[Rfam]
Rfam assigns this 59-nucleotide sequence from Prochlorococcus marinus to the family "psbNH RNA". Rfam classes the family as a cis-regulatory element.
RNA sequence: GAUGGUGAUUAAGCAUGCCUACUGUAAUGGUCAUAGUCCGCAUACGGACUAAUCCUGUC
Numbered sequence: 001g002a003u004g005g006u007g008a009u010u011a012a013g014c015a016u017g018c019c020u021a022c023u024g025u026a027a028u029g030g031u032c033a034u035a036g037u038c039c040g041c042a043u044a045c046g047g048a049c050u051a052a053u054c055c056u057g058u059c
Stems, first nucleotide, its partner, number of pairs: 027056001029054003034051007